[Rfam]
RNA: Small nucleolar RNA SNORA68
Organism: Suricata suricatta
RNA sequence: CUGGCACGUAAUAAGAAUUCCACCAGCGCUGUUCCUCAUAACAGCAGUUUAAACAGAGGUGCUGACAGAAAGUGGAUCUUGUCGCCUUUGGGGGGCUGUGGCCAUGCCCCUCAAAGUGAAUUUGGAGGUUCUACACCC
Numbered sequence: 001c002u003g004g005c006a007c008g009u010a011a012u013a014a015g016a017a018u019u020c021c022a023c024c025a026g027c028g029c030u031g032u033u034c035c036u037c038a039u040a041a042c043a044g045c046a047g048u049u050u051a052a053a054c055a056g057a058g059g060u061g062c063u064g065a066c067a068g069a070a071a072g073u074g075g076a077u078c079u080u081g082u083c084g085c086c087u088u089u090g091g092g093g094g095g096c097u098g099u100g101g102c103c104a105u106g107c108c109c110c111u112c113a114a115a116g117u118g119a120a121u122u123u124g125g126a127g128g129u130u131c132u133a134c135a136c137c138c
Base pairs, nucleotide, nucleotide: 002064003063004062005061006060007059009057025049026048027047028045029044030043031042032041033040074131075130076129077128078127079126080125086116087115088114089113090112091111092110093109094108095107096106